[Rfam]
Rfam assigns this 86-nucleotide sequence to the family "GA-cis RNA".
RNA sequence: GAGAGUCAGUGCUUAUGCACCGAAGGGGCAUAUCGGAAUAGCAAUGACGACCUGCCGCUGAGCAUAGCGAGGGGGCAACACAACAA
Numbered sequence: 001g002a003g004a005g006u007c008a009g010u011g012c013u014u015a016u017g018c019a020c021c022g023a024a025g026g027g028g029c030a031u032a033u034c035g036g037a038a039u040a041g042c043a044a045u046g047a048c049g050a051c052c053u054g055c056c057g058c059u060g061a062g063c064a065u066a067g068c069g070a071g072g073g074g075g076c077a078a079c080a081c082a083a084c085a086a
Stems, first nucleotide, its partner, number of pairs: 008045001010043004015031004020026001054076003058072002062068002
The family's RNA type in Rfam is small RNA.